A member of the RNA family "Purine riboswitch aptamer" from Frisingicoccus caecimuris, 99 nucleotides long. Gene Ontology term of the family: purine nucleobase biosynthetic process. The match comes from Rfam's covariance-model search (45 bits). Riboswitches are metabolite binding domains within certain messenger RNAs that serve as precision sensors for their corresponding targets. The base pairs follow the family's consensus structure, which is taken from published work.

RNA sequence: AGUGAUUAAAUGCGUUAUGCCAAUAUAGGUUUGGAUGUCUGGCCCAAACGUUUCUACCGCACGCCGGAAGUUGUGACUAUUGGUACUUAUGAUAGCUUA
Numbered sequence: 001a002g003u004g005a006u007u008a009a010a011u012g013c014g015u016u017a018u019g020c021c022a023a024u025a026u027a028g029g030u031u032u033g034g035a036u037g038u039c040u041g042g043c044c045c046a047a048a049c050g051u052u053u054c055u056a057c058c059g060c061a062c063g064c065c066g067g068a069a070g071u072u073g074u075g076a077c078u079a080u081u082g083g084u085a086c087u088u089a090u091g092a093u094a095g096c097u098u099a
Stems, first nucleotide, its partner, number of pairs: 018085008029049006058075004